[Rfam]
RNA sequence: UUCUCGCUCAAAGAAUCGCAUUCGAAGCACACAAACAGAGACGUCCUUCGGGGCGUCUCGGCUAGCAAUAGCCGCCUAUGCUUUGGGAGAAAGUCCCCGGACACCCUUCUUUCAGAAGGACAGCGGAAACGCGCCGCCACAGAAGCACUGCGGCUUCUCCUCUACCAAUUCCCCACCACUUCCUCCACCCUUUCGCCGUCUGUACUGCCUUCUCGUCGAUCUCGGGACCAUCUGGCUUGGCUGAGGAGACCACAUGGAUGAAGAUAUGAGUCCGAGCUCCUUGUGCGAUGUCUUUUGGGACCGGGUGAGAUGGGAUUGCGGGAGGUGAAUGGACUGUUCUUGGCGCGGUGGGGAUGUUCUGGUCGUGGAGGUUUUUUCGUCGAGAUCGAUAGUUAUGCGAUUGCCCUUCGCGCCAUGCAAGUGGUGCGCGGGGUAACUCGAUGGGGCUUAUUCUUGGUGCGAGG
Numbered sequence: 001u002u003c004u005c006g007c008u009c010a011a012a013g014a015a016u017c018g019c020a021u022u023c024g025a026a027g028c029a030c031a032c033a034a035a036c037a038g039a040g041a042c043g044u045c046c047u048u049c050g051g052g053g054c055g056u057c058u059c060g061g062c063u064a065g066c067a068a069u070a071g072c073c074g075c076c077u078a079u080g081c082u083u084u085g086g087g088a089g090a091a092a093g094u095c096c097c098c099g100g101a102c103a104c105c106c107u108u109c110u111u112u113c114a115g116a117a118g119g120a121c122a123g124c125g126g127a128a129a130c131g132c133g134c135c136g137c138c139a140c141a142g143a144a145g146c147a148c149u150g151c152g153g154c155u156u157c158u159c160c161u162c163u164a165c166c167a168a169u170u171c172c173c174c175a176c177c178a179c180u181u182c183c184u185c186c187a188c189c190c191u192u193u194c195g196c197c198g199u200c201u202g203u204a205c206u207g208c209c210u211u212c213u214c215g216u217c218g219a220u221c222u223c224g225g226g227a228c229c230a231u232c233u234g235g236c237u238u239g240g241c242u243g244a245g246g247a248g249a250c251c252a253c254a255u256g257g258a259u260g261a262a263g264a265u266a267u268g269a270g271u272c273c274g275a276g277c278u279c280c281u282u283g284u285g286c287g288a289u290g291u292c293u294u295u296u297g298g299g300a301c302c303g304g305g306u307g308a309g310a311u312g313g314g315a316u317u318g319c320g321g322g323a324g325g326u327g328a329a330u331g332g333a334c335u336g337u338u339c340u341u342g343g344c345g346c347g348g349u350g351g352g353g354a355u356g357u358u359c360u361g362g363u364c365g366u367g368g369a370g371g372u373u374u375u376u377u378c379g380u381c382g383a384g385a386u387c388g389a390u391a392g393u394u395a396u397g398c399g400a401u402u403g404c405c406c407u408u409c410g411c412g413c414c415a416u417g418c419a420a421g422u423g424g425u426g427c428g429c430g431g432g433g434u435a436a437c438u439c440g441a442u443g444g445g446g447c448u449u450a451u452u453c454u455u456g457g458u459g460c461g462a463g464g
Stems, first nucleotide, its partner, number of pairs: 002464006008457004014402006022087001023085006038059009091449003095446004123132003271369004276364001280362002283359001292353004336346002339343001404433004409428007